[Rfam]
The family of this 74-nucleotide sequence from Sarcophilus harrisii is "U1A polyadenylation inhibition element (PIE)". This family represents the U1A polyadenylation inhibition element (PIE). A search with the family's covariance model found it, with a score of 68 bits. The literature on the family includes a 2004 paper in Biochemistry by Clerte and Hall, "Global and Local Dynamics of the U1A Polyadenylation Inhibition Element (PIE) RNA and PIE RNA-U1A Complexes". The family's RNA type in Rfam is cis-regulatory element. Lineage of the source: Eukaryota > Craniata > Tetrapoda > Dasyuridae > Sarcophilus.
RNA sequence: UGCCUCAGCAUUGUACCCAGAGUCUGCCCUACAGACAUUGCACCUGGAGCUGUGGGGCAAAAUAAAAGACUGCA
Numbered sequence: 001u002g003c004c005u006c007a008g009c010a011u012u013g014u015a016c017c018c019a020g021a022g023u024c025u026g027c028c029c030u031a032c033a034g035a036c037a038u039u040g041c042a043c044c045u046g047g048a049g050c051u052g053u054g055g056g057g058c059a060a061a062a063u064a065a066a067a068g069a070c071u072g073c074a
Base pairs, nucleotide, nucleotide: 006052007051008050009049017047018046019045020044022036023035024034025033026032